[Rfam]
RNA sequence: GAAAGAUGAUGUUUACUAUAUUUGCUACUUCAGACGGGGCUUAAGCUCUGAAUGAGACAUUCUUUAUCACCAAGAUCUCUGAUUUU
Numbered sequence: 001g002a003a004a005g006a007u008g009a010u011g012u013u014u015a016c017u018a019u020a021u022u023u024g025c026u027a028c029u030u031c032a033g034a035c036g037g038g039g040c041u042u043a044a045g046c047u048c049u050g051a052a053u054g055a056g057a058c059a060u061u062c063u064u065u066a067u068c069a070c071c072a073a074g075a076u077c078u079c080u081g082a083u084u085u086u
Base pairs, nucleotide, nucleotide: 001086002085003084004083
The family of this 86-nucleotide RNA from Clavispora lusitaniae is "Small nucleolar RNA SNORD24". The source organism's lineage runs through Eukaryota, Dikarya, saccharomyceta, Clavispora and Clavispora lusitaniae. On this family, see Qu et al., Nucleic Acids Res 1995: "U24, a novel intron-encoded small nucleolar RNA with two 12 nt long, phylogenetically conserved complementarities to 28S rRNA".